[Rfam]
RNA sequence: AUUUAACAAAUUUUUAGAUAAUUCGCACUAUUGAUUGAAACCAUUUAAUUAGGAAGGAGCAUAAUAAGAUGACUUUUAAUACAAGCGCAUAUACGAAACCACUAAGACAACAAAAUAUUAUUAUCAUUUUAUUAUGCAUGUUAGGACUCGAACAUCAGUAAACAAAUUUUUGUUACUGCUCGUUUAAGUCCUAUUUCUAGUUGAAUGGGACUUAUCUA
Numbered sequence: 001a002u003u004u005a006a007c008a009a010a011u012u013u014u015u016a017g018a019u020a021a022u023u024c025g026c027a028c029u030a031u032u033g034a035u036u037g038a039a040a041c042c043a044u045u046u047a048a049u050u051a052g053g054a055a056g057g058a059g060c061a062u063a064a065u066a067a068g069a070u071g072a073c074u075u076u077u078a079a080u081a082c083a084a085g086c087g088c089a090u091a092u093a094c095g096a097a098a099c100c101a102c103u104a105a106g107a108c109a110a111c112a113a114a115a116u117a118u119u120a121u122u123a124u125c126a127u128u129u130u131a132u133u134a135u136g137c138a139u140g141u142u143a144g145g146a147c148u149c150g151a152a153c154a155u156c157a158g159u160a161a162a163c164a165a166a167u168u169u170u171u172g173u174u175a176c177u178g179c180u181c182g183u184u185u186a187a188g189u190c191c192u193a194u195u196u197c198u199a200g201u202u203g204a205a206u207g208g209g210a211c212u213u214a215u216c217u218a
Base pairs, nucleotide, nucleotide: 025216042207043206044205045204046203047202048201049200050199051198057139059137060136062123063122064121065120066119067118069116070115143192144191145190146189147188152184153182156178157177158176159175160174161173
Dot-bracket structure: ........................(................((((((((((.....(.((.((((((.((............................................)).))))))............)).)...(((((....((..((((((...........))))))...).)...))))).....))))))))))........)..
Source information:
The family of this 218-nucleotide RNA sequence from Staphylococcus massiliensis is "Listeria sRNA rli60". A reference for the family is Toledo-Arana et al. (2009), "The Listeria transcriptional landscape from saprophytism to virulence", Nature. By type it is a small RNA. The match comes from Rfam's covariance-model search (87 bits). NCBI's taxonomy places the organism under Bacteria, Caryophanales, Staphylococcaceae, Staphylococcus, Staphylococcus massiliensis.